[Rfam]
RNA sequence: UGAUGGCUGUUCCUCUUGUUGCUUGGAGCCUUAGGCAAUGAGAUUUUAGUCCAUCAUAUAUCAAACCUGGCUUAUCUUCACUCAGAGCACCAAAGGAUGGGUUGGCUGUCCGUUAGUGCCUUCUGAUUUUUGCGGAGUCAAACAAUU
Numbered sequence: 001u002g003a004u005g006g007c008u009g010u011u012c013c014u015c016u017u018g019u020u021g022c023u024u025g026g027a028g029c030c031u032u033a034g035g036c037a038a039u040g041a042g043a044u045u046u047u048a049g050u051c052c053a054u055c056a057u058a059u060a061u062c063a064a065a066c067c068u069g070g071c072u073u074a075u076c077u078u079c080a081c082u083c084a085g086a087g088c089a090c091c092a093a094a095g096g097a098u099g100g101g102u103u104g105g106c107u108g109u110c111c112g113u114u115a116g117u118g119c120c121u122u123c124u125g126a127u128u129u130u131u132g133c134g135g136a137g138u139c140a141a142a143c144a145a146u147u
Stems, first nucleotide, its partner, number of pairs: 001056006008049001014043005020037004069139005082126005087119004095111005